The family of this 89-nucleotide RNA sequence from Aquibacillus halophilus is "Glycine riboswitch aptamer". The organism belongs to Aquibacillus, within Bacteria. Rfam describes the family as follows. This family represents the bacterial glycine riboswitch. Its family is annotated with glycine biosynthetic process in the Gene Ontology. The base pairs follow the family's consensus structure. It scores 76 bits against the family's covariance model.

RNA sequence: AUGAUUUCAUGAGGAGAGACUACUUAUGUAGCGCCGAAGGAGCAAGCGAAACCCGCGAAUCUCUCAGGCAAAAAGACUCUUGAAUGACG
Numbered sequence: 001a002u003g004a005u006u007u008c009a010u011g012a013g014g015a016g017a018g019a020c021u022a023c024u025u026a027u028g029u030a031g032c033g034c035c036g037a038a039g040g041a042g043c044a045a046g047c048g049a050a051a052c053c054c055g056c057g058a059a060u061c062u063c064u065c066a067g068g069c070a071a072a073a074a075g076a077c078u079c080u081u082g083a084a085u086g087a088c089g
Stems, first nucleotide, its partner, number of pairs: 006084004011079003020031004033069003036065002040063003046056002